[Rfam]
RNA: SAM riboswitch aptamer (S box leader)
RNA sequence: CUCUUAUCGAGAGCAGGCGGAGGGAUUUGGCCCGAUGAAGCCCAGCAACCGACCGUAAUUCCGUUGUGAAACGGGGCGCAGCAAGAUUUGCGCCGGUAUGUAAAUACCUUUAAGGCACGGUGCUAAUUCCAACAGAGGAGAUUUUUCUUUUCUGGGAGAUAAGAG
Number, nucleotide and partner (000 for none) at each position: 001c165002u164003c163004u162005u161006a160007u159008c158009g000010a000011g000012a000013g043014c000015a000016g042017g041018c040019g000020g000021a000022g033023g032024g031025a000026u000027u132028u131029g130030g129031c024032c023033c022034g000035a000036u000037g000038a000039a000040g018041c017042c016043c013044a124045g123046c122047a121048a000049c120050c119051g116052a000053c114054c000055g000056u000057a000058a000059u000060u000061c000062c000063g000064u000065u000066g000067u000068g000069a000070a000071a000072c000073g000074g000075g000076g000077c000078g000079c000080a000081g000082c000083a000084a000085g000086a000087u000088u000089u000090g000091c000092g000093c000094c000095g000096g000097u000098a000099u000100g000101u000102a000103a000104a000105u000106a000107c000108c000109u000110u000111u000112a000113a000114g053115g000116c051117a000118c000119g050120g049121u047122g046123c045124u044125a000126a000127u000128u157129c030130c029131a028132a027133c154134a153135g152136a151137g150138g149139a148140g147141a000142u000143u000144u000145u000146u000147c140148u139149u138150u137151u136152c135153u134154g133155g000156g000157a128158g008159a007160u006161a005162a004163g003164a002165g001